RNA sequence: AGCUGGUCGUCGGGAGAGCGUGGCAGCUUCCCAGCCACCGCCGAAGGCGCAACCCCCAGGAAUCGCUCAGGCAAACGGACCGGCGACGCAAC
Numbered sequence: 001a002g003c004u005g006g007u008c009g010u011c012g013g014g015a016g017a018g019c020g021u022g023g024c025a026g027c028u029u030c031c032c033a034g035c036c037a038c039c040g041c042c043g044a045a046g047g048c049g050c051a052a053c054c055c056c057c058a059g060g061a062a063u064c065g066c067u068c069a070g071g072c073a074a075a076c077g078g079a080c081c082g083g084c085g086a087c088g089c090a091a092c
Stems, first nucleotide, its partner, number of pairs: 006087008020038004040072003043068002047066003053060002

A member of the RNA family "Glycine riboswitch aptamer", 92 nucleotides long. Rfam links the family to the GO term glycine biosynthetic process. This family represents the bacterial glycine riboswitch.